[Rfam]
RNA sequence: GUACCGUAUGAUGAUUUUUGGAUUAAAAUUCUCACGAUGGUCAUCUGAGGUACUUUUGUGUGCCUAACUGAUGAAACAUCCGAAUUUCCUGAUGGUC
Numbered sequence: 001g002u003a004c005c006g007u008a009u010g011a012u013g014a015u016u017u018u019u020g021g022a023u024u025a026a027a028a029u030u031c032u033c034a035c036g037a038u039g040g041u042c043a044u045c046u047g048a049g050g051u052a053c054u055u056u057u058g059u060g061u062g063c064c065u066a067a068c069u070g071a072u073g074a075a076a077c078a079u080c081c082g083a084a085u086u087u088c089c090u091g092a093u094g095g096u097c
Base pairs, nucleotide, nucleotide: 001097004094051062052061053060
Dot-bracket structure: (..(..............................................(((......)))...............................)..)
A member of the RNA family "Small nucleolar RNA Z161/Z228" from Solanum tuberosum, 97 nucleotides long.
Its Rfam clan is "SNORD35 clan".
Pairs were carried over by alignment from the consensus structure, which was predicted with PFOLD.
It scores 60 bits against the family's covariance model.
For this family Rfam cites "The high diversity of snoRNAs in plants: identification and comparative study of 120 snoRNA genes from Oryza sativa" (Chen et al., Nucleic Acids Res, 2003).
NCBI's taxonomy places the organism under Eukaryota, Streptophytina, eudicotyledons, Solanoideae, Solanum.
Rfam classes the family as a C/D-box small nucleolar RNA.
Gene Ontology terms of the family: RNA processing and nucleolus.